[Rfam]
RNA sequence: AUACGACAAAGGCAAACUUAUCGAAAGGUAAGGACGCAAAGCUAAGGACCUAAAACUCUCAUGAGUCAUGGUAGCCUAGUUACCGAA
Numbered sequence: 001a002u003a004c005g006a007c008a009a010a011g012g013c014a015a016a017c018u019u020a021u022c023g024a025a026a027g028g029u030a031a032g033g034a035c036g037c038a039a040a041g042c043u044a045a046g047g048a049c050c051u052a053a054a055a056c057u058c059u060c061a062u063g064a065g066u067c068a069u070g071g072u073a074g075c076c077u078a079g080u081u082a083c084c085g086a087a
Stems, first nucleotide, its partner, number of pairs: 012037002017032006040081004045077003048072003055066004